[Rfam]
This 78-nucleotide sequence from Triticum aestivum belongs to the Rfam family "MIR9657 microRNA precursor family". Taxonomically the source falls in Triticum (Eukaryota, Streptophyta, Spermatophyta, Magnoliopsida). Pairs were carried over by alignment from the consensus structure, which was predicted with RNAalifold.
RNA sequence: GCGUGCCGGCUCCGUUCGCCGGAGAAGCUUACUGCGGACCAACGCCGUGUGCUUCCUCGUCGAACGGUGGCGACCACG
Numbered sequence: 001g002c003g004u005g006c007c008g009g010c011u012c013c014g015u016u017c018g019c020c021g022g023a024g025a026a027g028c029u030u031a032c033u034g035c036g037g038a039c040c041a042a043c044g045c046c047g048u049g050u051g052c053u054u055c056c057u058c059g060u061c062g063a064a065c066g067g068u069g070g071c072g073a074c075c076a077c078g
Base pairs, nucleotide, nucleotide: 002078003077004076005075009071010070011069012067013066014065015064016063017062018061020059021058022057024055025054026053027052028051030049031048032047034045035044036043